Shown here is a 119-nucleotide sequence from Felis catus, a member of the family "Small nucleolar RNA SNORA64/SNORA10 family". By type it is an H/ACA-box small nucleolar RNA. Its family is annotated with nucleolus and RNA processing in the Gene Ontology. Clan: SNORA64 clan.
RNA sequence: UCAGCUCUGCCCUAUCAUACUCAGUGUGUGGCUGGCGUAUUUUCAGAGAGGAAGGCCCCCCUAAUGCAUGAUAGACCGGCCCCAAGUGGCCUCUCUCGGUUCCUAGGAGUGCAACAGUU
Numbered sequence: 001u002c003a004g005c006u007c008u009g010c011c012c013u014a015u016c017a018u019a020c021u022c023a024g025u026g027u028g029u030g031g032c033u034g035g036c037g038u039a040u041u042u043u044c045a046g047a048g049a050g051g052a053a054g055g056c057c058c059c060c061c062u063a064a065u066g067c068a069u070g071a072u073a074g075a076c077c078g079g080c081c082c083c084a085a086g087u088g089g090c091c092u093c094u095c096u097c098g099g100u101u102c103c104u105a106g107g108a109g110u111g112c113a114a115c116a117g118u119u
Stems, first nucleotide, its partner, number of pairs: 001051002005048005015031006058109001060107003064104001066102001073096003078091004
For this family Rfam cites "Nucleolar localization signals of box H/ACA small nucleolar RNAs" (Narayanan et al., EMBO J, 1999). The base pairs follow the family's consensus structure, which is taken from published work.